Listeria sRNA rli60: a 205-nucleotide sequence from Staphylococcus simiae.
RNA sequence: GUUUAUCAAAUUUUUAGACAAUUCAAAUAAUUAAUACGAUAUAAACCAUUCAAGGAAGGAGUAUAAUAAAAUGACUAAUCUUAAUACGCAACAUCAACCAACAACAUCAAAUAUUAUUAUUUUAUUAUACUCUUUAGGACUCGAACGUUAGUAAGAUUUUACUAAACGCUUUAAGUCCUAUUUCUGCUUGAAUGGGACUUAUAAA
Numbered sequence: 001g002u003u004u005a006u007c008a009a010a011u012u013u014u015u016a017g018a019c020a021a022u023u024c025a026a027a028u029a030a031u032u033a034a035u036a037c038g039a040u041a042u043a044a045a046c047c048a049u050u051c052a053a054g055g056a057a058g059g060a061g062u063a064u065a066a067u068a069a070a071a072u073g074a075c076u077a078a079u080c081u082u083a084a085u086a087c088g089c090a091a092c093a094u095c096a097a098c099c100a101a102c103a104a105c106a107u108c109a110a111a112u113a114u115u116a117u118u119a120u121u122u123u124a125u126u127a128u129a130c131u132c133u134u135u136a137g138g139a140c141u142c143g144a145a146c147g148u149u150a151g152u153a154a155g156a157u158u159u160u161a162c163u164a165a166a167c168g169c170u171u172u173a174a175g176u177c178c179u180a181u182u183u184c185u186g187c188u189u190g191a192a193u194g195g196g197a198c199u200u201a202u203a204a205a
Base pairs, nucleotide, nucleotide: 022204023203047194048193049192050191051190052189053188054187056185059132060131061130062129064116065115066114067113068112071107072106136179137178138177139176140175145171146168147167148165149164150163151162152161153160154159

For this family Rfam cites "The Listeria transcriptional landscape from saprophytism to virulence" (Toledo-Arana et al., Nature, 2009). The family's consensus secondary structure was predicted with RNAalifold.